Rfam assigns this 67-nucleotide sequence from a Lentisphaerota bacterium to the family "Fluoride riboswitch aptamer (crcB RNA motif)".
[Rfam]
RNA sequence: AGCUUCAAAGGUGAUGGAGUUCACCUGAUUAAACUGCCCGGUGUAGGCUGAUGACUCCUUUUAUUAA
Numbered sequence: 001a002g003c004u005u006c007a008a009a010g011g012u013g014a015u016g017g018a019g020u021u022c023a024c025c026u027g028a029u030u031a032a033a034c035u036g037c038c039c040g041g042u043g044u045a046g047g048c049u050g051a052u053g054a055c056u057c058c059u060u061u062u063a064u065u066a067a
Stems, first nucleotide, its partner, number of pairs: 010025004016058006036048003